[Rfam]
RNA sequence: CACUUGUUAAUAAGACGUUUGUUAUUAAAAAUGCGUGGUCAUAUGAACUCUGUAGUGAUUUCAGUGCAUUACUGAGAUAAGCU
Dot-bracket structure: ..((((((...................................................................))))))..
RNA: Small nucleolar RNA SNORD72